[Rfam]
RNA sequence: CAGGCCGUCAUUGGGGAGUAGCCGCCCUUCACCCCGGAGGGGCUUGCGUCAACAUACUUGGUCCGCAGACCAUGGCGCAAGCGGUGUAUCAGCUUGGCAAGACCUUUGACCAUGUUGCCUUCCCAUGCCGGACGGGCGCAUGGUCAUCGGUAUCCGUCCGGCAUGAAACACU
Numbered sequence: 001c002a003g004g005c006c007g008u009c010a011u012u013g014g015g016g017a018g019u020a021g022c023c024g025c026c027c028u029u030c031a032c033c034c035c036g037g038a039g040g041g042g043c044u045u046g047c048g049u050c051a052a053c054a055u056a057c058u059u060g061g062u063c064c065g066c067a068g069a070c071c072a073u074g075g076c077g078c079a080a081g082c083g084g085u086g087u088a089u090c091a092g093c094u095u096g097g098c099a100a101g102a103c104c105u106u107u108g109a110c111c112a113u114g115u116u117g118c119c120u121u122c123c124c125a126u127g128c129c130g131g132a133c134g135g136g137c138g139c140a141u142g143g144u145c146a147u148c149g150g151u152a153u154c155c156g157u158c159c160g161g162c163a164u165g166a167a168a169c170a171c172u
Stems, first nucleotide, its partner, number of pairs: 026040003042082010059072005083172005089166001
The record is a 172-nucleotide RNA sequence from Noviherbaspirillum galbum, which matches "Manganese Mn2+ riboswitch aptamer (yybP-ykoY)" in Rfam. The source organism's lineage runs through Bacteria, Betaproteobacteria, Burkholderiales, Oxalobacteraceae and Noviherbaspirillum. This RNA was originally discovered in E. coli during a large scale screen and was named SraF. The family was later found to exist upstream of related families of protein genes in many bacteria, including the the yybP and ykoK genes in B. subtilis. The specific functions of these proteins are unknown, but this structured RNA element may be involved in their genetic regulation as a riboswitch. The base pairs follow the family's consensus structure. The family has 29 seed sequences and 1,126 matches in Rfam 15.1.